The record is a 110-nucleotide RNA from Rosa chinensis, which matches "mir-399 microRNA precursor family" in Rfam.
The family has 13 seed sequences and 2,396 matches in Rfam 15.1.
Rfam links the family to the GO terms RISC complex and miRNA-mediated post-transcriptional gene silencing.
It scores 67 bits against the family's covariance model.
The family's consensus secondary structure was predicted with PFOLD.
mir-399 was identified in both Arabidopsis thaliana and Oryza sativa computationally and was later experimentally verified. mir-399 is thought to target mRNAs coding for a phosphatase transporter. The mature sequence is excised from the 3' arm of the hairpin.
RNA sequence: AAUUGAAUUUCAGGGCAAUUCUCCUUUGGCUGAAAGCAGGGGCAGUUAACAGUCUAAGUAAAUGCACCAUCAAUAUUUCUGCCAAAGGAGAAUUACCCUGUUAUUCAUCU
Numbered sequence: 001a002a003u004u005g006a007a008u009u010u011c012a013g014g015g016c017a018a019u020u021c022u023c024c025u026u027u028g029g030c031u032g033a034a035a036g037c038a039g040g041g042g043c044a045g046u047u048a049a050c051a052g053u054c055u056a057a058g059u060a061a062a063u064g065c066a067c068c069a070u071c072a073a074u075a076u077u078u079c080u081g082c083c084a085a086a087g088g089a090g091a092a093u094u095a096c097c098c099u100g101u102u103a104u105u106c107a108u109c110u
Stems, first nucleotide, its partner, number of pairs: 005106004011100005017094003021090004027084004032079004
Dot-bracket structure: ....((((..(((((.(((.((((..((((.((((........................................)))).))))..)))).))).)))))..))))....